[Rfam]
RNA sequence: CCGACAUGGCCGGGGUGCCCGAACCAGCAGUACGGAUCGGGCUGAGAACACACCCGCCGAACCUGAUCCGGGUCAUACCGGCGAGAGGGAGCCACCAUGGCGGGAAU
Number, nucleotide and partner (000 for none) at each position: 001c000002c000003g000004a000005c000006a000007u094008g093009g092010c091011c056012g055013g054014g053015g000016u050017g042018c041019c040020c039021g038022a000023a000024c000025c000026a000027g000028c000029a000030g000031u000032a000033c000034g000035g000036a000037u000038c021039g020040g019041g018042c017043u000044g000045a000046g000047a000048a000049c000050a016051c000052a000053c014054c013055c012056g011057c000058c000059g000060a000061a000062c088063c087064u086065g000066a000067u000068c081069c080070g079071g078072g000073u000074c000075a000076u000077a000078c071079c070080g069081g068082c000083g000084a000085g000086a064087g063088g062089g000090a000091g010092c009093c008094a007095c000096c000097a000098u000099g000100g000101c000102g000103g000104g000105a000106a000107u000
RNA: TPP riboswitch aptamer (THI element)